Small nucleolar RNA SNORA25: a 118-nucleotide sequence. It is annotated as an H/ACA-box small nucleolar RNA. Rfam describes the family as follows. ACA25 is a member of the H/ACA class of snoRNA that guide the sites of modification of uridines to pseudouridines. The family has 30 seed sequences and 1,129 matches in Rfam 15.1.
[Rfam]
RNA sequence: AGGUCAUUUCAAAGAGGCUGCAAAACCAAGAGCUCUUAACGCUGUGAGCAAAGAUGGAAGUUCUCUCUAGGAUGCCAUGGCACUCGAUGGUGGUAUGUUUUCCUGGGGAGAUAUAAGA
Number, nucleotide and partner (000 for none) at each position: 001a000002g049003g000004u047005c046006a045007u044008u000009u000010c000011a000012a000013a000014g037015a036016g027017g026018c000019u000020g000021c000022a000023a000024a000025a000026c017027c016028a000029a000030g000031a000032g000033c000034u000035c000036u015037u014038a000039a000040c000041g000042c000043u000044g007045u006046g005047a004048g000049c002050a000051a000052a000053g000054a000055u000056g000057g000058a000059a000060g000061u000062u111063c110064u109065c108066u107067c000068u000069a104070g103071g102072a101073u000074g000075c000076c000077a096078u095079g094080g000081c092082a091083c090084u089085c000086g000087a000088u000089g084090g083091u082092g081093g000094u079095a078096u077097g000098u000099u000100u000101u072102c071103c070104u069105g000106g000107g066108g065109a064110g063111a062112u000113a000114u000115a000116a000117g000118a000